[Rfam]
RNA sequence: GUGGGCUACGGCGACAUGUACCCUGUGACAGUGGGGGGCAAGUUGGUGGGUUCCAUGUGCGCCAUUGCUGGCGUCCUGACCAUCUCGCUUCCUGUUCCAGUCAUCGUGUCCAAC
Numbered sequence: 001g002u003g004g005g006c007u008a009c010g011g012c013g014a015c016a017u018g019u020a021c022c023c024u025g026u027g028a029c030a031g032u033g034g035g036g037g038g039c040a041a042g043u044u045g046g047u048g049g050g051u052u053c054c055a056u057g058u059g060c061g062c063c064a065u066u067g068c069u070g071g072c073g074u075c076c077u078g079a080c081c082a083u084c085u086c087g088c089u090u091c092c093u094g095u096u097c098c099a100g101u102c103a104u105c106g107u108g109u110c111c112a113a114c
Base pairs, nucleotide, nucleotide: 001114002113004111005110007108008107009106010105011104013102014101015100018097020095021094037077038076040074049063050062051061